Record summary: This 98-nucleotide sequence from Sphingobium boeckii belongs to the Rfam family "Glycine riboswitch aptamer". A search with the family's covariance model found it, with a score of 64 bits. Lineage of the source: Bacteria > Pseudomonadati > Pseudomonadota > Sphingobiaceae > Sphingobium.
RNA sequence: GGGGAUCGCGCGGGAGAGUGUUUGACGGGCUUGCCCAUCGAUCCGCCGAAGGAGCAACCGCCCCGGAAUCUCUCAGGCCAAAGGACCGCGCGAACCGA
Numbered sequence: 001g002g003g004g005a006u007c008g009c010g011c012g013g014g015a016g017a018g019u020g021u022u023u024g025a026c027g028g029g030c031u032u033g034c035c036c037a038u039c040g041a042u043c044c045g046c047c048g049a050a051g052g053a054g055c056a057a058c059c060g061c062c063c064c065g066g067a068a069u070c071u072c073u074c075a076g077g078c079c080a081a082a083g084g085a086c087c088g089c090g091c092g093a094a095c096c097g098a
Base pairs, nucleotide, nucleotide: 006093007092008091009090010089011088012087013086020043022041023040024039025038045078046077047076048074049073052072053071054070058066059065